[Rfam]
Description
The family of this 108-nucleotide RNA sequence from Novosphingobium sp. Fuku2-ISO-50 is "TPP riboswitch aptamer (THI element)".

RNA sequence: CUACGAACCUCGGGGAGCCUGUGUGGGCUGAGAGGGGCCAGUCACGUGGCCCGACCCGUCGAACCUGAACCCGUUAGCACGGGCGGAGGGAAGGGCCGGCGAUCGCAA
Numbered sequence: 001c002u003a004c005g006a007a008c009c010u011c012g013g014g015g016a017g018c019c020u021g022u023g024u025g026g027g028c029u030g031a032g033a034g035g036g037g038c039c040a041g042u043c044a045c046g047u048g049g050c051c052c053g054a055c056c057c058g059u060c061g062a063a064c065c066u067g068a069a070c071c072c073g074u075u076a077g078c079a080c081g082g083g084c085g086g087a088g089g090g091a092a093g094g095g096c097c098g099g100c101g102a103u104c105g106c107a108a
Base pairs, nucleotide, nucleotide: 008094009093010092011058012057013056014055017028018027019026020025035052036051037050038049039048064089065088066087070083071082072081073080

Lineage of the source: Bacteria > Pseudomonadati > Sphingomonadales > Sphingomonadaceae > Novosphingobium.